[Rfam]
RNA sequence: CGACCGGGUCGGACAGUCGCGGGCGCAGCGCCGAAAGGCCGCGCAUGAGGAAAGUCCGGGCUCCGCAGGGCAAGGAUAACGGGUAACGCCCGCCCAGAGCGAUCUGAGGAAAAGUGCAACAGAAAUAAACCGCCGGAGGCGGCUCGCGCCGCCUCCGGCAAGGGUGGAAAGGUGCGGUAAGAGCGCACCCAAUGGCGUGUGAAAGCGUCCAUUGCUGUAAACUCUAUCCGGAGCAACACCGCAGAGGGAGCAAGGCCUGCCCGGCUGCUUCCGAGAAGGUGGCUGGAGCGCACCGGCAACGGUGCGCCUAGAUAGAUGACUGUCGAUUACAGAACCCGGCUUACAGACCCGAUCGUAAA
Numbered sequence: 001c002g003a004c005c006g007g008g009u010c011g012g013a014c015a016g017u018c019g020c021g022g023g024c025g026c027a028g029c030g031c032c033g034a035a036a037g038g039c040c041g042c043g044c045a046u047g048a049g050g051a052a053a054g055u056c057c058g059g060g061c062u063c064c065g066c067a068g069g070g071c072a073a074g075g076a077u078a079a080c081g082g083g084u085a086a087c088g089c090c091c092g093c094c095c096a097g098a099g100c101g102a103u104c105u106g107a108g109g110a111a112a113a114g115u116g117c118a119a120c121a122g123a124a125a126u127a128a129a130c131c132g133c134c135g136g137a138g139g140c141g142g143c144u145c146g147c148g149c150c151g152c153c154u155c156c157g158g159c160a161a162g163g164g165u166g167g168a169a170a171g172g173u174g175c176g177g178u179a180a181g182a183g184c185g186c187a188c189c190c191a192a193u194g195g196c197g198u199g200u201g202a203a204a205g206c207g208u209c210c211a212u213u214g215c216u217g218u219a220a221a222c223u224c225u226a227u228c229c230g231g232a233g234c235a236a237c238a239c240c241g242c243a244g245a246g247g248g249a250g251c252a253a254g255g256c257c258u259g260c261c262c263g264g265c266u267g268c269u270u271c272c273g274a275g276a277a278g279g280u281g282g283c284u285g286g287a288g289c290g291c292a293c294c295g296g297c298a299a300c301g302g303u304g305c306g307c308c309u310a311g312a313u314a315g316a317u318g319a320c321u322g323u324c325g326a327u328u329a330c331a332g333a334a335c336c337c338g339g340c341u342u343a344c345a346g347a348c349c350c351g352a353u354c355g356u357a358a359a
Stems, first nucleotide, its partner, number of pairs: 001355003005351006011344001012324007020047002023044004028039001052342003056339005061233004069262002074229005080092004094108001095106004109224002114222002116218003130163002132159012171189006191213005196205001198203001237281004246272006254266004288307008
Description:
This 359-nucleotide sequence from Firmicutes bacterium CAG:124 belongs to the Rfam family "Bacterial RNase P class A". Ribonuclease P (RNase P) is a ubiquitous endoribonuclease, found in archaea, bacteria and eukarya as well as chloroplasts and mitochondria. Clan: RNaseP clan.